[Rfam]
Rfam assigns this 77-nucleotide sequence from Xenopus tropicalis to the family "mir-208 microRNA precursor family". Taxonomically the source falls in Silurana (Eukaryota, Metazoa, Chordata, Tetrapoda). Pairs were carried over by alignment from the consensus structure, which was predicted with RNAalifold. A reference for the family is Lagos-Quintana et al. (2003), "New microRNAs from mouse and human", RNA.
RNA sequence: UUCAACAGGCAAGCUUUUUGCUUGGAUUAUGUUUUCUGUUGUUGUAUAAGACGAGCAUAAAGCUUGUUUGUUAGAAG
Numbered sequence: 001u002u003c004a005a006c007a008g009g010c011a012a013g014c015u016u017u018u019u020g021c022u023u024g025g026a027u028u029a030u031g032u033u034u035u036c037u038g039u040u041g042u043u044g045u046a047u048a049a050g051a052c053g054a055g056c057a058u059a060a061a062g063c064u065u066g067u068u069u070g071u072u073a074g075a076a077g
Stems, first nucleotide, its partner, number of pairs: 004072003008068002011065007020056001023053002027049006